[Rfam]
RNA sequence: GGGGUGUGAUCAGAGCAGGGAGCCCGAGAAUGGCUCCUCUGUUUACAACACAUCCAACAGGAACUACCCCUCACGGGGGCAGGACCCUCUGGCCUUCCUGUCACAUGACACCCUG
Numbered sequence: 001g002g003g004g005u006g007u008g009a010u011c012a013g014a015g016c017a018g019g020g021a022g023c024c025c026g027a028g029a030a031u032g033g034c035u036c037c038u039c040u041g042u043u044u045a046c047a048a049c050a051c052a053u054c055c056a057a058c059a060g061g062a063a064c065u066a067c068c069c070c071u072c073a074c075g076g077g078g079g080c081a082g083g084a085c086c087c088u089c090u091g092g093c094c095u096u097c098c099u100g101u102c103a104c105a106u107g108a109c110a111c112c113c114u115g
Base pairs, nucleotide, nucleotide: 002055003054004053005052006051007050008049013044014043015042016041017040018039019038020037022034023033024032069107071105075101076095077094078093080091081090082089083088
Description
The record is a 115-nucleotide sequence from Myotis davidii, which matches "Small nucleolar RNA SNORA11" in Rfam. Rfam's curators write: U107 (SNORA11) is a member of the H/ACA class of snoRNAs that guide the sites of modification of uridines to pseudouridines. It scores 66 bits against the family's covariance model. The source organism's lineage runs through Eukaryota, Opisthokonta, Dipnotetrapodomorpha, Boreoeutheria and Myotis. On this family, see Gu et al., Nucleic Acids Res 2005: "A novel experimental approach for systematic identification of box H/ACA snoRNAs from eukaryotes". Rfam classes the family as an H/ACA-box small nucleolar RNA. Pairs were carried over by alignment from the consensus structure, which was predicted with RNAalifold.